[Rfam]
RNA: mir-998 microRNA precursor family
Organism: Bactrocera dorsalis
RNA sequence: AAAAUUCAUUUUGGAACUGAAUUCUCGUGGUUCUGCAUUGCAUACCAUGACGAGGUAAACGUAUUGUAAUUGAAAUUUUGUAGCACCAUGAGAUUCAGCUCUAGCGUGAAUUUC
Numbered sequence: 001a002a003a004a005u006u007c008a009u010u011u012u013g014g015a016a017c018u019g020a021a022u023u024c025u026c027g028u029g030g031u032u033c034u035g036c037a038u039u040g041c042a043u044a045c046c047a048u049g050a051c052g053a054g055g056u057a058a059a060c061g062u063a064u065u066g067u068a069a070u071u072g073a074a075a076u077u078u079u080g081u082a083g084c085a086c087c088a089u090g091a092g093a094u095u096c097a098g099c100u101c102u103a104g105c106g107u108g109a110a111u112u113u114c
Stems, first nucleotide, its partner, number of pairs: 003112005009106001011104005017098003023093008033083005